[Rfam]
RNA sequence: CUGUGAUUCUCUGGAGAGUCUCAAAAUGAGCGCCGAAGGUGUAAGCAUAAACAGAUAGCUUUUAGUUUGCUGUAUGCGAUCUCUCAGGCAAAAGGACAGAGCAGGUAGU
Numbered sequence: 001c002u003g004u005g006a007u008u009c010u011c012u013g014g015a016g017a018g019u020c021u022c023a024a025a026a027u028g029a030g031c032g033c034c035g036a037a038g039g040u041g042u043a044a045g046c047a048u049a050a051a052c053a054g055a056u057a058g059c060u061u062u063u064a065g066u067u068u069g070c071u072g073u074a075u076g077c078g079a080u081c082u083c084u085c086a087g088g089c090a091a092a093a094g095g096a097c098a099g100a101g102c103a104g105g106u107a108g109u
Stems, first nucleotide, its partner, number of pairs: 007103001009101005020030004032089003035085002039083001041081001045077005
Annotation
Rfam assigns this 109-nucleotide sequence from Lentihominibacter hominis to the family "Glycine riboswitch aptamer". The source organism's lineage runs through Bacteria, Bacillati, Bacillota, Anaerovoracaceae and Lentihominibacter. Rfam links the family to the GO term glycine biosynthetic process. It scores 59 bits against the family's covariance model.